[Rfam]
RNA sequence: GAAUUCAGGUAAUCGCUGCAACAUUGUUGUAGAGGAAAGUCCAUGCUCGCACGGUUCUGAGAUGACCGUAGUGUUCGUGCUCGGCGAAAAGAUAAGCCGGGGCAGCGUAUUUUCAUACGCUGACGGCGGGAAGAAAUCCUACGUUCCCUUUGGGAAUAUGGAUGACAUUCCCUGAAAAGUGCCACAGUGACGUAGCCGGUUUGGAAACAGGCCGGGUGGAACGAGGUAAACCCCGCGAGUGAGAAACCCAAAUUAUGGUAGGGGCGCUCUUCGGAAGGAAAUGAACGGACGAAGGGACAGAUUUAGUCUGUAGAUAGAUGAUUACCACCCUAAGUACGAGGCGAGAGCCGUUUGAGUACACGGGAACAAAACAUGGCUUAUCGGA
Number, nucleotide and partner (000 for none) at each position: 001g000002a000003a000004u385005u384006c383007a381008g326009g325010u324011a323012a322013u321014c320015g000016c032017u031018g030019c029020a028021a027022c000023a000024u000025u000026g000027u021028u020029g019030u018031a017032g016033a000034g000035g000036a000037a379038a378039g377040u000041c376042c375043a374044u373045g372046c243047u242048c241049g240050c239051a069052c068053g067054g066055u000056u065057c064058u000059g000060a000061g000062a000063u000064g057065a056066c054067c053068g052069u051070a000071g000072u000073g000074u000075u238076c237077g236078u235079g234080c101081u100082c099083g098084g097085c096086g000087a000088a000089a000090a000091g000092a000093u000094a000095a000096g085097c084098c083099g082100g081101g080102g124103c122104a121105g120106c119107g118108u117109a116110u115111u000112u000113u000114c000115a110116u109117a108118c107119g106120c105121u104122g103123a000124c102125g233126g232127c000128g172129g171130g170131a169132a000133g000134a000135a000136a163137u162138c161139c160140u000141a000142c000143g157144u156145u155146c154147c153148c000149u000150u000151u000152g000153g147154g146155a145156a144157u143158a000159u000160g139161g138162a137163u136164g000165a000166c000167a000168u000169u131170c130171c129172c128173u000174g000175a000176a000177a000178a000179g231180u230181g227182c226183c225184a000185c000186a000187g000188u000189g000190a000191c000192g000193u000194a000195g000196c215197c214198g213199g212200u211201u210202u209203g208204g000205a000206a000207a000208c203209a202210g201211g200212c199213c198214g197215g196216g000217u000218g000219g000220a000221a000222c000223g000224a000225g183226g182227u181228a000229a000230a180231c179232c126233c125234c079235g078236c077237g076238a075239g050240u049241g048242a047243g046244a000245a000246a000247c263248c262249c261250a000251a000252a000253u000254u000255a000256u000257g000258g000259u000260a000261g249262g248263g247264g000265c000266g000267c296268u295269c294270u293271u292272c291273g290274g000275a000276a000277g000278g000279a000280a000281a000282u000283g000284a000285a000286c000287g000288g000289a000290c273291g272292a271293a270294g269295g268296g267297a311298c310299a309300g308301a307302u306303u000304u000305a000306g302307u301308c300309u299310g298311u297312a000313g000314a000315u000316a000317g000318a000319u000320g014321a013322u012323u011324a010325c009326c008327a000328c000329c364330c363331u362332a000333a000334g359335u358336a357337c356338g000339a000340g000341g000342c000343g000344a000345g000346a000347g000348c000349c000350g000351u000352u000353u000354g000355a000356g337357u336358a335359c334360a000361c000362g331363g330364g329365a000366a000367c000368a000369a000370a000371a000372c045373a044374u043375g042376g041377c039378u038379u037380a000381u007382c000383g006384g005385a004